[Rfam]
The record is a 62-nucleotide RNA from Bacillus cereus, which matches "RAGATH-18 RNA" in Rfam. The family's consensus secondary structure is taken from published work. Lineage of the source: Bacteria > Bacillati > Bacilli > Bacillus > Bacillus cereus. Rfam classes the family as a small RNA. The sequence is in the family's curated seed alignment.

RNA sequence: CCCUUGGAGUGUUAUGUCAAACGAAAGUAGCUUCGGCAAAAUCGGACACGUAGAGUAGGGAA
Numbered sequence: 001c002c003c004u005u006g007g008a009g010u011g012u013u014a015u016g017u018c019a020a021a022c023g024a025a026a027g028u029a030g031c032u033u034c035g036g037c038a039a040a041a042u043c044g045g046a047c048a049c050g051u052a053g054a055g056u057a058g059g060g061a062a
Stems, first nucleotide, its partner, number of pairs: 001060004009049005022044003030037002